Record summary
This 153-nucleotide sequence from Priestia filamentosa belongs to the Rfam family "c-di-AMP riboswitch aptamer (ydaO/yuaA leader)". The pairing is the family consensus, mapped onto this sequence.
[Rfam]
RNA sequence: UCAUCUUAACCGCUGAAUCCGUAUGGAACGGAGGAACCAAUUUUGUAACAGUUUUUUCUGUUACUUGGGGUGAAUCCUUUAUGUAAGUAAAGGUAGGGUUACUUCUUGACCCGAAUCCGACAGCUAACUUCGUAAGCGUUAGGGAGAGGGUGU
Numbered sequence: 001u002c003a004u005c006u007u008a009a010c011c012g013c014u015g016a017a018u019c020c021g022u023a024u025g026g027a028a029c030g031g032a033g034g035a036a037c038c039a040a041u042u043u044u045g046u047a048a049c050a051g052u053u054u055u056u057u058c059u060g061u062u063a064c065u066u067g068g069g070g071u072g073a074a075u076c077c078u079u080u081a082u083g084u085a086a087g088u089a090a091a092g093g094u095a096g097g098g099u100u101a102c103u104u105c106u107u108g109a110c111c112c113g114a115a116u117c118c119g120a121c122a123g124c125u126a127a128c129u130u131c132g133u134a135a136g137c138g139u140u141a142g143g144g145a146g147a148g149g150g151u152g153u
Base pairs, nucleotide, nucleotide: 011138012137013136014135018027019026020025028133029132030131031130032129033128038067039066068118069117070116076093077092078091079090096112097111098110099109
Lineage of the source: Bacteria > Bacilli > Caryophanales > Bacillaceae > Priestia.